[Rfam]
RNA sequence: CAGGCAACUGUAAACAUCCUUGACUGGAAGCUGGUGCAGAAGAGGGGGCUUUCAGUCGGAUGUUUGCAGCCGCCAG
Numbered sequence: 001c002a003g004g005c006a007a008c009u010g011u012a013a014a015c016a017u018c019c020u021u022g023a024c025u026g027g028a029a030g031c032u033g034g035u036g037c038a039g040a041a042g043a044g045g046g047g048g049c050u051u052u053c054a055g056u057c058g059g060a061u062g063u064u065u066g067c068a069g070c071c072g073c074c075a076g
Stems, first nucleotide, its partner, number of pairs: 003074003008069012023056010
Shown here is a 76-nucleotide sequence from Scleropages formosus, a member of the family "mir-30 microRNA precursor family". Pairs were carried over by alignment from the consensus structure, which was predicted with PFOLD. Rfam links the family to the GO terms gene silencing by miRNA and RISC complex. Taxonomically the source falls in Scleropages (Eukaryota, Craniata, Neopterygii, Osteoglossidae). About the family: This family consists of the mammalian microRNA (miRNA) precursor mir-30a. Animal miRNAs are transcribed as ~70nt precursors and subsequently processed by the Dicer enzyme to give a ~22nt product. In this case the mature sequence comes from both the 3' (miR-30) and 5' (mir-97-6) arms of the precursor. The extents of the hairpin precursors are not generally known and are estimated based on hairpin prediction.